[Rfam]
RNA: SucA RNA motif
Organism: Ramlibacter monticola
RNA sequence: UCGCAUCCGCCAACCGGUCCAGCCGUGUCGCGGAAGGUUCACCAACCAGCUCCAUGCUCCCUGAAGGGGGGCGGAAAGUAGCG
Dot-bracket structure: .(((.(((((....((((...))))....))))).((((....)))).(((....(((((((...)))))))....))).)))
Numbered sequence: 001u002c003g004c005a006u007c008c009g010c011c012a013a014c015c016g017g018u019c020c021a022g023c024c025g026u027g028u029c030g031c032g033g034a035a036g037g038u039u040c041a042c043c044a045a046c047c048a049g050c051u052c053c054a055u056g057c058u059c060c061c062u063g064a065a066g067g068g069g070g071g072c073g074g075a076a077a078g079u080a081g082c083g
Stems, first nucleotide, its partner, number of pairs: 002083003006034005015025004036047004049079003056072007